The family of this 117-nucleotide RNA from Salibacterium salarium is "PyrR binding site". A reference for the family is Bonner et al. (2001), "Molecular recognition of pyr mRNA by the Bacillus subtilis attenuation regulatory protein PyrR", Nucleic Acids Res. Rfam describes the family as follows. This family represents the PyrR binding site and terminator structure. This RNA structure is found upstream of a variety of genes involved in pyrimidine biosynthesis and transport. Pairs were carried over by alignment from the consensus structure, which is taken from published work. It is annotated as a cis-regulatory element. It scores 54 bits against the family's covariance model.
[Rfam]
RNA sequence: ACCCUCUUUAAAUCAGUCCGGUGAGGCUGAAAAGAGGUAUAAAUUCGGCAGGCGCAAGGAAAACUCUCCCGCUGACGAUUUGUACCUCUUUGUCGAUACGGCAAAGAUUUUUUUGUC
Numbered sequence: 001a002c003c004c005u006c007u008u009u010a011a012a013u014c015a016g017u018c019c020g021g022u023g024a025g026g027c028u029g030a031a032a033a034g035a036g037g038u039a040u041a042a043a044u045u046c047g048g049c050a051g052g053c054g055c056a057a058g059g060a061a062a063a064c065u066c067u068c069c070c071g072c073u074g075a076c077g078a079u080u081u082g083u084a085c086c087u088c089u090u091u092g093u094c095g096a097u098a099c100g101g102c103a104a105a106g107a108u109u110u111u112u113u114u115g116u117c
Base pairs, nucleotide, nucleotide: 003037004036005035006034007033008032009031013030014029015028016027017026018025045078046077047076049074050073051072052069082112084110087107088106089105090104091103092102093101094100095099